The record is a 294-nucleotide RNA from Meyerozyma guilliermondii, which matches "Nuclear RNase P" in Rfam.
Clan: RNaseP clan.
The match comes from Rfam's covariance-model search (53 bits).
The source organism's lineage runs through Eukaryota, Dikarya, Ascomycota, Serinales and Meyerozyma guilliermondii.
RNA sequence: UCGCCCCGUAUCGCAUUUACCCGCUUACUCAGACGGCCGUUGCGGUCGCCGGUUCAAACCAGCGCGGGUGGGAAAUUCGGUGGUUCUCUCCGUCCACGGAGGCAGGUUUCUGCCUUCGCACAAAAUGCUCCUGAGAGCGUCCUGGCGCGAAAGCGCCGGGCAGGGCCAUCAGAAAUCAGUCGAGUUUACUUGGCAUGGGAGGCUCUGCGGACGGUUGGUCAUGUGUAUGAACAUGGCUAUUGAGUGCAAUAUGCGAACCUUGAAAAAGGCACCCGAUACCGAUCAUCGUGGUGA
Numbered sequence: 001u002c003g004c005c006c007c008g009u010a011u012c013g014c015a016u017u018u019a020c021c022c023g024c025u026u027a028c029u030c031a032g033a034c035g036g037c038c039g040u041u042g043c044g045g046u047c048g049c050c051g052g053u054u055c056a057a058a059c060c061a062g063c064g065c066g067g068g069u070g071g072g073a074a075a076u077u078c079g080g081u082g083g084u085u086c087u088c089u090c091c092g093u094c095c096a097c098g099g100a101g102g103c104a105g106g107u108u109u110c111u112g113c114c115u116u117c118g119c120a121c122a123a124a125a126u127g128c129u130c131c132u133g134a135g136a137g138c139g140u141c142c143u144g145g146c147g148c149g150a151a152a153g154c155g156c157c158g159g160g161c162a163g164g165g166c167c168a169u170c171a172g173a174a175a176u177c178a179g180u181c182g183a184g185u186u187u188a189c190u191u192g193g194c195a196u197g198g199g200a201g202g203c204u205c206u207g208c209g210g211a212c213g214g215u216u217g218g219u220c221a222u223g224u225g226u227a228u229g230a231a232c233a234u235g236g237c238u239a240u241u242g243a244g245u246g247c248a249a250u251a252u253g254c255g256a257a258c259c260u261u262g263a264a265a266a267a268g269g270c271a272c273c274c275g276a277u278a279c280c281g282a283u284c285a286u287c288g289u290g291g292u293g294a
Stems, first nucleotide, its partner, number of pairs: 001294004007288002014255001016253001018251001019069005034051004039046001078281005092212004126139005143158006161207007179194003258269004